[Rfam]
RNA sequence: AGAGCAAGGGAGUCGAACGGGAUAGGGCGGACCUGCAAGCCUUUGCAGCGGCAAUGACCAGGUACUCCGCUCCACCCGGGGACAUGCCCCAG
Number, nucleotide and partner (000 for none) at each position: 001a000002g000003a000004g000005c000006a000007a000008g085009g000010g083011a000012g000013u080014c079015g000016a000017a000018c000019g000020g073021g072022a000023u000024a000025g000026g071027g070028c069029g067030g066031a063032c062033c061034u060035g059036c000037a000038a000039g052040c051041c050042u000043u048044u000045g000046c000047a000048g043049c000050g041051g040052c039053a000054a000055u000056g000057a000058c000059c035060a034061g033062g032063u031064a000065c000066u030067c029068c000069g028070c027071u026072c021073c020074a000075c000076c000077c000078g000079g014080g013081g000082a000083c010084a000085u008086g000087c000088c000089c000090c000091a000092g000
This 92-nucleotide RNA belongs to the Rfam family "Hepatitis C virus stem-loop SL8670". The literature on the family includes a 2015 paper in Proc Natl Acad Sci U S A by Mauger et al., "Functionally conserved architecture of hepatitis C virus RNA genomes". It is one of the family's seed sequences. The family's consensus secondary structure was predicted with RNAfold.